[Rfam]
A member of the RNA family "mir-263 microRNA precursor family" from Heliconius melpomene, 82 nucleotides long.
RNA sequence: UUAUGCUGGGUCUUGGCACUGGGAGAAUUCACAGGAGUUAUAUAAUUACCCGUGAGUUUCCUGAUGCCUCAGCUCAGUGUAG
Numbered sequence: 001u002u003a004u005g006c007u008g009g010g011u012c013u014u015g016g017c018a019c020u021g022g023g024a025g026a027a028u029u030c031a032c033a034g035g036a037g038u039u040a041u042a043u044a045a046u047u048a049c050c051c052g053u054g055a056g057u058u059u060c061c062u063g064a065u066g067c068c069u070c071a072g073c074u075c076a077g078u079g080u081a082g
Stems, first nucleotide, its partner, number of pairs: 003080008015068004020063003023059001025058002029055004034050001
Pairs were carried over by alignment from the consensus structure, which was predicted with RNAalifold. On this family, see Li et al., BMC Genomics 2009: "Direct sequencing and expression analysis of a large number of miRNAs in Aedes aegypti and a multi-species survey of novel mosquito miRNAs". It is one of the family's seed sequences. Gene Ontology terms of the family: miRNA-mediated post-transcriptional gene silencing and RISC complex. Clan: mir-182 clan.